[Rfam]
RNA sequence: UAUAUGGGAUGUAAAAACACAAUUCGGUUGGUAGUCCGGAUGCAUUAAUAAAUUAAUGUCAGUGACCUUCCCCUCCUCGGGAUGUCCAUCAUUUCAUAGUAUGUU
Numbered sequence: 001u002a003u004a005u006g007g008g009a010u011g012u013a014a015a016a017a018c019a020c021a022a023u024u025c026g027g028u029u030g031g032u033a034g035u036c037c038g039g040a041u042g043c044a045u046u047a048a049u050a051a052a053u054u055a056a057u058g059u060c061a062g063u064g065a066c067c068u069u070c071c072c073c074u075c076c077u078c079g080g081g082a083u084g085u086c087c088a089u090c091a092u093u094u095c096a097u098a099g100u101a102u103g104u105u
Stems, first nucleotide, its partner, number of pairs: 004097008022041006042059006069082004
RNA: azaaromatic riboswitch aptamer (yjdF RNA)
Organism: Priestia megaterium